[Rfam]
RNA: Group II catalytic intron D1-D4-1
Organism: Denitromonas iodatirespirans
RNA sequence: CUACUGACGUCGUGAGGCGUCGGGAUGCGCGUGAGGAAGUCAGCCGAGGCCAUAGUAGGUGCCAGUACGGGCUGAAGGGC
Number, nucleotide and partner (000 for none) at each position: 001c027002u000003a000004c023005u022006g021007a020008c019009g018010u017011c016012g000013u000014g000015a000016g011017g010018c009019g008020u007021c006022g005023g004024g000025a000026u000027g001028c000029g000030c000031g000032u000033g000034a000035g000036g000037a000038a000039g000040u047041c046042a000043g000044c000045c000046g041047a040048g000049g080050c079051c078052a000053u000054a000055g000056u000057a000058g073059g072060u071061g000062c069063c000064a000065g000066u000067a000068c000069g062070g000071g060072c059073u058074g000075a000076a000077g000078g051079g050080c049